[Rfam]
RNA: S. pyogenes small RNA Spy491738
Organism: Streptococcus dysgalactiae
RNA sequence: AAGUCUGUUUGAGAAAACAGAAGCUCAGGUCAAGUAAGUACACACUUACAAUAACACAGUUGAUGAUGGGGAAACUCAGAGUCAA
Number, nucleotide and partner (000 for none) at each position: 001a000002a000003g000004u021005c020006u019007g018008u017009u016010u015011g000012a000013g000014a000015a010016a009017a008018c007019a006020g005021a004022a000023g000024c000025u000026c000027a000028g000029g000030u000031c000032a000033a000034g049035u048036a047037a046038g045039u044040a000041c000042a000043c000044a039045c038046u037047u036048a035049c034050a000051a000052u000053a000054a000055c000056a000057c000058a000059g000060u085061u084062g083063a082064u081065g000066a000067u078068g077069g076070g075071g000072a000073a000074a000075c070076u069077c068078a067079g000080a000081g064082u063083c062084a061085a060